A member of the RNA family "MIR403 microRNA precursor family" from Nicotiana attenuata, 109 nucleotides long. Its family is annotated with miRNA-mediated post-transcriptional gene silencing and RISC complex in the Gene Ontology. For this family Rfam cites "High throughput approaches reveal splicing of primary microRNA transcripts and tissue specific expression of mature microRNAs in Vitis vinifera" (Mica et al., BMC Genomics, 2009).
[Rfam]
RNA sequence: GCAUAUUUCACGUUUGUGCGUGAUUCUGACAACCAUUUUUCAUCAUUAAAUCUAUUUUUAUCUCAUUGGUUGUGUUUGUUAGAUUCACGCACAAACUCGUAAUAUGACU
Numbered sequence: 001g002c003a004u005a006u007u008u009c010a011c012g013u014u015u016g017u018g019c020g021u022g023a024u025u026c027u028g029a030c031a032a033c034c035a036u037u038u039u040u041c042a043u044c045a046u047u048a049a050a051u052c053u054a055u056u057u058u059u060a061u062c063u064c065a066u067u068g069g070u071u072g073u074g075u076u077u078g079u080u081a082g083a084u085u086c087a088c089g090c091a092c093a094a095a096c097u098c099g100u101a102a103u104a105u106g107a108c109u
Stems, first nucleotide, its partner, number of pairs: 002106002005103003012096012025083002028080003